[Rfam]
RNA: Bacterial large subunit ribosomal RNA, nucleotides 2883 to 3141
Nucleotides: 259
Stems, first nucleotide, its partner, number of pairs: 001159008011145004017045007047102005055096001057094001062089005067082006107139002113133005162173003178256004182198005203249003206245005212238002216233001219232001221230003
Number, partner (000 for none) and nucleotide at each position: 001159g002158g003157a004156u005155a006154c007153u008152u009000g010000a011145g012144a013143a014142g015000a016000c017045c018044u019043g020042u021041c022040c023039c024000u025000a026000g027000u028000a029000c030000g031000a032000g033000a034000g035000g036000a037000c038000c039023g040022g041021g042020a043019c044018g045017g046000a047102c048101g049100a050099a051098c052000c053000u054000c055096u056000a057094g058000u059000g060000u061000g062089c063088c064087a065086g066085u067082u068081g069080u070079c071078c072077c073000g074000c075000c076000c077072g078071g079070g080069g081068c082067a083000c084000g085066g086065c087064u088063g089062g090000u091000u092000a093000g094057c095000c096055a097000c098051g099050u100049u101048c102047g103000g104000a105000a106000a107139g108138g109000g110000u111000a112000a113133c114132c115131g116130c117129u118000g119000a120000a121000a122000g123000c124000a125000u126000c127000u128000a129117a130116g131115c132114g133113g134000g135000a136000a137000a138108c139107c140000a141000c142014c143013u144012u145011c146000a147000a148000g149000a150000c151000a152008a153007g154006g155005u156004a157003u158002c159001c160000a161000c162173a163172c164171c165000c166000a167000c168000a169000c170000g171164g172163g173162u174000g175000g176000a177000a178256g179255g180254c181253c182198c183197c184196c185195a186194g187000c188000a189000g190000a191000c192000c193000a194186c195185u196184g197183g198182g199000u200000a201000g202000a203249u204248a205247g206245g207244c208243c209242g210241g211000a212238g213237g214000u215000g216233c217000a218000a219232g220000a221230c222229c223228c224000g225000c226000a227000a228223g229222g230221g231000c232219c233216g234000c235000a236000g237213c238212c239000g240000a241210c242209c243208g244207g245206u246000a247205c248204u249203a250000a251000u252000a253181g254180g255179c256178c257000a258000a259000c